Shown here is a 77-nucleotide sequence from Ornithorhynchus anatinus, a member of the family "mir-208 microRNA precursor family".
[Rfam]
RNA sequence: UCUGACCAACAAGCUUUUUGCUCGUCUUAUACGGGAAUGUCAGGUAUAAUCUGGGCCAAAAGCUUGUCUGUCACAGG
Numbered sequence: 001u002c003u004g005a006c007c008a009a010c011a012a013g014c015u016u017u018u019u020g021c022u023c024g025u026c027u028u029a030u031a032c033g034g035g036a037a038u039g040u041c042a043g044g045u046a047u048a049a050u051c052u053g054g055g056c057c058a059a060a061a062g063c064u065u066g067u068c069u070g071u072c073a074c075a076g077g
Base pairs, nucleotide, nucleotide: 003073004072005071006070009067011065012064013063014062015061016060017059018058020056023053024052027049028048029047030046031045032044
For this family Rfam cites "Cloning and expression of new microRNAs from zebrafish" (Kloosterman et al., Nucleic Acids Res, 2006).
Rfam 15.1 lists 563 matches to the family in 255 species.